[Rfam]
RNA sequence: UGACCAGUAACGCUGAGUUCUCCUGGGGAGAAGCGGGGAAACCAAUUUUAGGGGUGAAUCCUCGGCACUUUAGCAGCACAUUUUGUCAUUCGAUGUGAGUGAGUGAGUGUCAGGUAGGGUUACCUUGCAACCCGAACCCGUCAGCUAACCUCGUAAGCGUGGGAAGGAAAGCCA
Numbered sequence: 001u002g003a004c005c006a007g008u009a010a011c012g013c014u015g016a017g018u019u020c021u022c023c024u025g026g027g028g029a030g031a032a033g034c035g036g037g038g039a040a041a042c043c044a045a046u047u048u049u050a051g052g053g054g055u056g057a058a059u060c061c062u063c064g065g066c067a068c069u070u071u072a073g074c075a076g077c078a079c080a081u082u083u084u085g086u087c088a089u090u091c092g093a094u095g096u097g098a099g100u101g102a103g104u105g106a107g108u109g110u111c112a113g114g115u116a117g118g119g120u121u122a123c124c125u126u127g128c129a130a131c132c133c134g135a136a137c138c139c140g141u142c143a144g145c146u147a148a149c150c151u152c153g154u155a156a157g158c159g160u161g162g163g164a165a166g167g168a169a170a171g172c173c174a
Stems, first nucleotide, its partner, number of pairs: 011159004018032003033154006043051001052139003060114003117133004
The family of this 174-nucleotide sequence from Syntrophaceticus schinkii is "c-di-AMP riboswitch aptamer (ydaO/yuaA leader)".
For this family Rfam cites "New RNA motifs suggest an expanded scope for riboswitches in bacterial genetic control" (Barrick et al., Proc Natl Acad Sci U S A, 2004).
A search with the family's covariance model found it, with a score of 87 bits.
The pairing is the family consensus, mapped onto this sequence.